Rfam assigns this 59-nucleotide RNA from Myotis lucifugus to the family "Antizyme RNA frameshifting stimulation element".
Rfam describes the family as follows. This family represents a structural element which is found in antizyme mRNA and is known to promote frameshifting. Antizyme genes have have two partially overlapping open reading frames, the second, which encodes the functional protein requires +1 translational frameshifting. This frameshift is stimulated by a pseudoknot present 3' of the frameshift site in the antizyme mRNA. The frameshifting efficiency is dependent on the level of polyamines in the cell, when the polyamine concentration is high frameshifting is more likely to occur which leads to an increase in the quantity of functional antizyme produced. The functional antizyme acts to reduce ornithine decarboxylase (ODC) activity which leads to a drop in polyamines present in the cell. Therefore, this family can be thought of as a biosensor for intracellular free polyamines.
On this family, see Ivanov et al., J Mol Biol 2004: "Identification of a new antizyme mRNA +1 frameshifting stimulatory pseudoknot in a subset of diverse invertebrates and its apparent absence in intermediate species".
Rfam 15.1 lists 1,595 matches to the family in 640 species.
The family's RNA type in Rfam is frameshift element.
RNA sequence: UGAUGUCCCUCACCCACCCCUGAAGAUCCCAGGUGGCUGAGGGAAUGGUUAGAGGGAUC
Numbered sequence: 001u002g003a004u005g006u007c008c009c010u011c012a013c014c015c016a017c018c019c020c021u022g023a024a025g026a027u028c029c030c031a032g033g034u035g036g037c038u039g040a041g042g043g044a045a046u047g048g049u050u051a052g053a054g055g056g057a058u059c
Stems, first nucleotide, its partner, number of pairs: 006044006014036005025059006